[Rfam]
RNA sequence: GGAAGAUUACCCAAGUCCGGCUGAAGGGAUCGGUCUUGAAAACCGAGAGUCGGGGAAACCGAGCGGGGGUUCGAAUCCCUCAUCUUCCG
Numbered sequence: 001g002g003a004a005g006a007u008u009a010c011c012c013a014a015g016u017c018c019g020g021c022u023g024a025a026g027g028g029a030u031c032g033g034u035c036u037u038g039a040a041a042a043c044c045g046a047g048a049g050u051c052g053g054g055g056a057a058a059c060c061g062a063g064c065g066g067g068g069g070u071u072c073g074a075a076u077c078c079c080u081c082a083u084c085u086u087c088c089g
Stems, first nucleotide, its partner, number of pairs: 001088007010028003030046005065081005
RNA: tRNA
Organism: Mycoplasma capricolum